[Rfam]
RNA: Y RNA
RNA sequence: GGCUAGUCCGAAGGUAGUGAGUUAUCUAAAUUGUUCACAGUUAUACAACUGUUCACAGAUUGAAUUCCCUGUUCUGCUCUUUCCUGCCUUCUCACUACUGUACUUGCCUAGGCUUUA
Numbered sequence: 001g002g003c004u005a006g007u008c009c010g011a012a013g014g015u016a017g018u019g020a021g022u023u024a025u026c027u028a029a030a031u032u033g034u035u036c037a038c039a040g041u042u043a044u045a046c047a048a049c050u051g052u053u054c055a056c057a058g059a060u061u062g063a064a065u066u067c068c069c070u071g072u073u074c075u076g077c078u079c080u081u082u083c084c085u086g087c088c089u090u091c092u093c094a095c096u097a098c099u100g101u102a103c104u105u106g107c108c109u110a111g112g113c114u115u116u117a
Base pairs, nucleotide, nucleotide: 001113003111004110005109006108008106010105011104014101015100016096017095018094019093020092021091048078051075